RNA sequence: GGCUCCGGCGAUGCGGGCCGCUCCAAGAACCCAUAACCGGAAGGGAAAAACCAACCAACCGAACCGAACCGCCCGGGUUCGCACGCCUGUGUCACCCGGUGGGGUGAUCCGGUGGCUCUGGGCUGGCUUUCCGGUGGCGUCGCGGUGCAGGCUCGGCGACGAGCAACCCCGAACGAGCAACCCCGAACAAGCAAUUGGCCCCCGACGGGACUGGCAUCCCGGUCGAGGGCCUGACCACCUAGGAAGAAAGCGCUUCCCG
Number, nucleotide and partner (000 for none) at each position: 001g000002g000003c000004u000005c000006c000007g239008g238009c000010g236011a000012u000013g000014c000015g000016g079017g078018c077019c076020g000021c000022u000023c000024c000025a000026a000027g000028a000029a000030c000031c000032c000033a000034u000035a000036a000037c000038c000039g000040g000041a000042a000043g000044g000045g000046a000047a000048a000049a000050a000051c000052c000053a000054a000055c000056c000057a000058a000059c000060c000061g000062a000063a000064c000065c000066g000067a000068a000069c000070c000071g000072c000073c000074c000075g000076g019077g018078u017079u016080c000081g000082c000083a000084c000085g000086c000087c000088u000089g000090u000091g000092u107093c106094a105095c104096c103097c102098g000099g000100u000101g000102g097103g096104g095105u094106g093107a092108u000109c000110c000111g000112g000113u000114g000115g000116c000117u000118c000119u000120g000121g000122g157123c156124u155125g154126g153127c000128u000129u000130u000131c000132c000133g000134g000135u000136g000137g000138c000139g000140u000141c000142g000143c000144g000145g000146u000147g000148c000149a000150g000151g000152c000153u126154c125155g124156g123157c122158g000159a000160c000161g000162a000163g000164c000165a000166a000167c000168c000169c000170c000171g000172a000173a000174c000175g000176a000177g000178c000179a000180a000181c000182c000183c000184c000185g000186a000187a000188c000189a000190a000191g000192c000193a000194a000195u000196u000197g231198g230199c229200c228201c227202c000203c225204g224205a000206c000207g220208g219209g218210a217211c000212u000213g000214g000215c000216a000217u210218c209219c208220c207221g000222g000223u000224c204225g203226a000227g201228g200229g199230c198231c197232u000233g000234a000235c000236c010237a000238c008239c007240u000241a000242g257243g256244a255245a254246g253247a000248a000249a000250g000251c000252g000253c246254u245255u244256c243257c242258c000259g000